The record is a 60-nucleotide RNA, which matches "Actino-pnp RNA" in Rfam. By type it is a cis-regulatory element. The family's consensus secondary structure is taken from published work.

[Rfam]
RNA sequence: AUUGGUCCUCGGUAGUGGUUUCCGGGCAGUUAUACCCGUGAACUUCGAUCGAAGAUCCAU
Number, nucleotide and partner (000 for none) at each position: 001a060002u059003u000004g057005g056006u055007c054008c000009u052010c051011g050012g049013u048014a000015g000016u000017g044018g043019u042020u041021u040022c000023c038024g037025g036026g035027c000028a000029g000030u000031u000032a000033u000034a000035c026036c025037c024038g023039u000040g021041a020042a019043c018044u017045u000046c000047g000048a013049u012050c011051g010052a009053a000054g007055a006056u005057c004058c000059a002060u001